The record is a 113-nucleotide RNA from Rhodococcus sp. RD6.2, which matches "SAM (S-adenosyl methionine) riboswitch aptamer" in Rfam.
A reference for the family is Weinberg et al. (2008), "The aptamer core of SAM-IV riboswitches mimics the ligand-binding site of SAM-I riboswitches", RNA.
Taxonomically the source falls in Rhodococcus (Bacteria, Actinomycetota, Actinomycetes, Nocardiaceae).
SAM-IV is a mRNA element that regulates gene expression via direct sensing of S-adenosylmethionine (SAM or AdoMet). SAM-IV riboswitches share conserved nucleotide positions with the previously described SAM-I riboswitches sequence analysis and molecular recognition experiments suggest that SAM-I and SAM-IV riboswitches share similar ligand binding sites, but have different scaffolds.
RNA sequence: GGUCAUGAGUGCCAGCAUCAAGCCCCGGCUCGCUGGCCGGCAACCCUCCAUCCGCGGUGGGGUGCCCCGGGUGAUGACCUGGUUCUCCGCACAGUGGAGGACAAGCGCGGGUC
Numbered sequence: 001g002g003u004c005a006u007g008a009g010u011g012c013c014a015g016c017a018u019c020a021a022g023c024c025c026c027g028g029c030u031c032g033c034u035g036g037c038c039g040g041c042a043a044c045c046c047u048c049c050a051u052c053c054g055c056g057g058u059g060g061g062g063u064g065c066c067c068c069g070g071g072u073g074a075u076g077a078c079c080u081g082g083u084u085c086u087c088c089g090c091a092c093a094g095u096g097g098a099g100g101a102c103a104a105g106c107g108c109g110g111g112u113c
Stems, first nucleotide, its partner, number of pairs: 001079004009038001011037006021030002039066003044062003048057002082102009